Shown here is a 142-nucleotide RNA from Ureibacillus sinduriensis, a member of the family "c-di-AMP riboswitch aptamer (ydaO/yuaA leader)". The source organism's lineage runs through Bacteria, Bacillota, Caryophanaceae, Ureibacillus and Ureibacillus sinduriensis. Rfam links the family to the GO terms regulation of gene expression and cyclic-di-AMP binding. It scores 80 bits against the family's covariance model.

[Rfam]
RNA sequence: AAUAAUAAAUGGCCAAAUCUCGUAACGAGAACGGAGGACCCAAUCUUUUUGGGGUUAAUUCUGCAAAUGCAGAAGGGAUGAUUUUAAGCUUCUUCGCCAUCCUACCCGUCAGCUAACUUCGUCGGCUAAAGCGAAGGAGGUC
Numbered sequence: 001a002a003u004a005a006u007a008a009a010u011g012g013c014c015a016a017a018u019c020u021c022g023u024a025a026c027g028a029g030a031a032c033g034g035a036g037g038a039c040c041c042a043a044u045c046u047u048u049u050u051g052g053g054g055u056u057a058a059u060u061c062u063g064c065a066a067a068u069g070c071a072g073a074a075g076g077g078a079u080g081a082u083u084u085u086a087a088g089c090u091u092c093u094u095c096g097c098c099a100u101c102c103u104a105c106c107c108g109u110c111a112g113c114u115a116a117c118u119u120c121g122u123c124g125g126c127u128a129a130a131g132c133g134a135a136g137g138a139g140g141u142c
Stems, first nucleotide, its partner, number of pairs: 011127004018030003031122006041051002052107003060073004076102004